Rfam assigns this 130-nucleotide RNA from Pseudomonas sp. GV071 to the family "rmf RNA". Pairs were carried over by alignment from the consensus structure, which is taken from published work. Rfam classes the family as a cis-regulatory element.
RNA sequence: UUCGUUAGAAAUCAACUCAGCCCCACGUCGCAACGACGCCGGGGGGAGACCCGUAACGCCGGCAGCGGGCUCCACUGGUAGAGGAUUUCUGCCAGGCCUCGAAAGAGGCAAAUAGGACAUAACAGUCAAC
Dot-bracket structure: ....................(((..((((.....))))..)))....(.(((((..........))))).).....((((((.....))))))..(((((....))))).....................